Annotation: A member of the RNA family "Small nucleolar RNA SNORA55" from Catharus fuscescens, 119 nucleotides long. Rfam classes the family as an H/ACA-box small nucleolar RNA. Pairs were carried over by alignment from the consensus structure, which was predicted with PFOLD. Gene Ontology terms of the family: RNA processing and nucleolus. NCBI's taxonomy places the organism under Eukaryota, Theropoda, Neoaves, Passeriformes, Catharus. It scores 59 bits against the family's covariance model. ACA55 is a member of the H/ACA class of snoRNA that guide the sites of modification of uridines to pseudouridines.
RNA sequence: GCACCUGCUGCUUCCCUGUUCCUUGCAGGUCUGGGGGCUCUUGGUGCUGCAGCGCAGCAGUGAGAAUCCAGAUGGGUUCUGUACAGGUUUGGGACUCAUCUCUACACCACUCAAAAAUC
Numbered sequence: 001g002c003a004c005c006u007g008c009u010g011c012u013u014c015c016c017u018g019u020u021c022c023u024u025g026c027a028g029g030u031c032u033g034g035g036g037g038c039u040c041u042u043g044g045u046g047c048u049g050c051a052g053c054g055c056a057g058c059a060g061u062g063a064g065a066a067u068c069c070a071g072a073u074g075g076g077u078u079c080u081g082u083a084c085a086g087g088u089u090u091g092g093g094a095c096u097c098a099u100c101u102c103u104a105c106a107c108c109a110c111u112c113a114a115a116a117a118u119c
Stems, first nucleotide, its partner, number of pairs: 001047005013037006021029002057112001059111004070101008084092001085090001